[Rfam]
RNA: Bacterial small signal recognition particle RNA
Organism: Stieleria marina
Nucleotides: 095
Stems, first nucleotide, its partner, number of pairs: 004089011015076001017075005024067005034059004042051002
Number, partner (000 for none) and nucleotide at each position: 001000g002000g003000c004089g005088g006087c007086g008085g009084c010083c011082c012081u013080u014079g015076c016000g017075a018074g019073g020072g021071u022000g023000a024067g025066u026065c027064g028063u029000g030000a031000a032000c033000c034059u035058g036057g037056u038000c039000a040000g041000g042051c043050c044000u045000u046000a047000a048000c049000u050043g051042g052000a053000g054000c055000a056037g057036c058035c059034a060000u061000a062000a063028g064027c065026g066025g067024u068000g069000u070000a071021g072020c073019u074018u075017u076015g077000u078000g079014u080013g081012a082011g083010g084009g085008u086007c087006g088005c089004c090000a091000c092000c093000u094000c095000c